A member of the RNA family "SAM (S-adenosyl methionine) riboswitch aptamer" from Arthrobacter sp. MN05-02, 114 nucleotides long.

RNA sequence: AAUCAAGAGUUCCAACGCAAAACCCUGGUUUGUUGGACGGCAACCCUCUCGCUGUAGUGGGGUGCCCCAGGUGAGGAUUCGGCCCGGGCUGGACCAGCCGGGCAAGUAUGGCGC
Numbered sequence: 001a002a003u004c005a006a007g008a009g010u011u012c013c014a015a016c017g018c019a020a021a022a023c024c025c026u027g028g029u030u031u032g033u034u035g036g037a038c039g040g041c042a043a044c045c046c047u048c049u050c051g052c053u054g055u056a057g058u059g060g061g062g063u064g065c066c067c068c069a070g071g072u073g074a075g076g077a078u079u080c081g082g083c084c085c086g087g088g089c090u091g092g093a094c095c096a097g098c099c100g101g102g103c104a105a106g107u108a109u110g111g112c113g114c
Stems, first nucleotide, its partner, number of pairs: 001079004009038001011037006021030002039066003044062003048057002082103005088098004

SAM-IV is a mRNA element that regulates gene expression via direct sensing of S-adenosylmethionine (SAM or AdoMet). Taxonomically the source falls in Arthrobacter (Bacteria, Bacillati, Actinomycetota, Micrococcaceae).